[Rfam]
RNA sequence: GCUUGGAAGCGGGGGUGCCGGCGGUGGUCGGCUGAGAGAGUCCCUUCGAACCUGAUGCGGCUAGUACCGCUGUAGGGAGCUUCGCCGCAUAGUCG
Dot-bracket structure: .....(((((((((.((((((......)))))......)..)))).....((((..((((......))))..))))..)))))............
Numbered sequence: 001g002c003u004u005g006g007a008a009g010c011g012g013g014g015g016u017g018c019c020g021g022c023g024g025u026g027g028u029c030g031g032c033u034g035a036g037a038g039a040g041u042c043c044c045u046u047c048g049a050a051c052c053u054g055a056u057g058c059g060g061c062u063a064g065u066a067c068c069g070c071u072g073u074a075g076g077g078a079g080c081u082u083c084g085c086c087g088c089a090u091a092g093u094c095g
Stems, first nucleotide, its partner, number of pairs: 006083005011045004016039001017032005051076004057070004
A member of the RNA family "TPP riboswitch aptamer (THI element)" from Dyella soli, 95 nucleotides long. A search with the family's covariance model found it, with a score of 65 bits. Rfam's curators write: Vitamin B(1) in its active form thiamin pyrophosphate (TPP) is an essential coenzyme that is synthesised by coupling of pyrimidine and thiazole moieties in bacteria. The previously detected thiamin-regulatory element, thi box was extended, resulting in a new, highly conserved RNA secondary structure, the THI element, which is widely distributed in eubacteria and also occurs in some archaea. Analysis of operon structures identified a large number of new candidate thiamin-regulated genes, mostly transporters, in various prokaryotic organisms. The THI element is a riboswitch that directly binds to TPP to regulate gene expression through a variety of mechanisms in archaea, bacteria and eukaryotes. through a variety of mechanisms in archaea, bacteria and eukaryotes. Lineage of the source: Bacteria > Pseudomonadati > Gammaproteobacteria > Rhodanobacteraceae > Dyella.